[Rfam]
RNA sequence: CGGAUGAUAUAGAUGAGGCGGAGUUUGACACGAGCAUGUAUCAUUUCAGUGAGCAUAUACCUCCUGCGAGGGAACAACAGCAAGCUGCAGAAGUGGUGCAUGAAAUAGGACAAGUUACUCGCCAACUGCCUCAGGACUAUCAAGUUUCUGAAGAACAAGCUCAGUUGCUCUUCUUCCACUACAGCUAUUCCG
Numbered sequence: 001c002g003g004a005u006g007a008u009a010u011a012g013a014u015g016a017g018g019c020g021g022a023g024u025u026u027g028a029c030a031c032g033a034g035c036a037u038g039u040a041u042c043a044u045u046u047c048a049g050u051g052a053g054c055a056u057a058u059a060c061c062u063c064c065u066g067c068g069a070g071g072g073a074a075c076a077a078c079a080g081c082a083a084g085c086u087g088c089a090g091a092a093g094u095g096g097u098g099c100a101u102g103a104a105a106u107a108g109g110a111c112a113a114g115u116u117a118c119u120c121g122c123c124a125a126c127u128g129c130c131u132c133a134g135g136a137c138u139a140u141c142a143a144g145u146u147u148c149u150g151a152a153g154a155a156c157a158a159g160c161u162c163a164g165u166u167g168c169u170c171u172u173c174u175u176c177c178a179c180u181a182c183a184g185c186u187a188u189u190c191c192g
Stems, first nucleotide, its partner, number of pairs: 001192004010181001012179001015176004020171005
RNA: MIR854 microRNA precursor family
Organism: Arabidopsis thaliana